The record is a 179-nucleotide sequence from Paludibacter propionicigenes, which matches "Bacteroidales-1 6S-Bacteroidales RNA suggested" in Rfam. The family's RNA type in Rfam is small RNA. The literature on the family includes a 2020 paper in Nat Commun by Ryan et al., "A high-resolution transcriptome map identifies small RNA regulation of metabolism in the gut microbe Bacteroides thetaiotaomicron". Lineage of the source: Bacteria > Bacteroidia > Bacteroidales > Paludibacter > Paludibacter propionicigenes. Bacteroidales-1 was first reported in a comparative genomics-based approach of genome and metagenome sequences from Weinberg et al. 2010 In a high-resolution transcriptome map study of Bacteroides thetaiotaomicron, Ryan et al. 2020 report this sRNA as 6S RNA homologue of Bacteroides, in the study they obtain evidence of small product RNAs (pRNAs) related to 6S function.

RNA sequence: AACCGCAUUGUUCUGAGAUUGGAAAACUCAACGUUAAAAAAUUUAACGAGUAAUGUUCGGUUUUUAAUGGCGGGCUGCGCCUUCGGGUAUCCCAUGUGGACGGCAGAUUACAACGAAAACUAACAUCUCAAAUCCUAUUUAUAGGAGUUUUCUCAACUAAUGGCAAUGCGGCUUUUUUC
Numbered sequence: 001a002a003c004c005g006c007a008u009u010g011u012u013c014u015g016a017g018a019u020u021g022g023a024a025a026a027c028u029c030a031a032c033g034u035u036a037a038a039a040a041a042u043u044u045a046a047c048g049a050g051u052a053a054u055g056u057u058c059g060g061u062u063u064u065u066a067a068u069g070g071c072g073g074g075c076u077g078c079g080c081c082u083u084c085g086g087g088u089a090u091c092c093c094a095u096g097u098g099g100a101c102g103g104c105a106g107a108u109u110a111c112a113a114c115g116a117a118a119a120c121u122a123a124c125a126u127c128u129c130a131a132a133u134c135c136u137a138u139u140u141a142u143a144g145g146a147g148u149u150u151u152c153u154c155a156a157c158u159a160a161u162g163g164c165a166a167u168g169c170g171g172c173u174u175u176u177u178u179c
Base pairs, nucleotide, nucleotide: 054125055124056123059121060120061119062118063117064116065115068112069111075106076105077104078103079088080087081086092099093098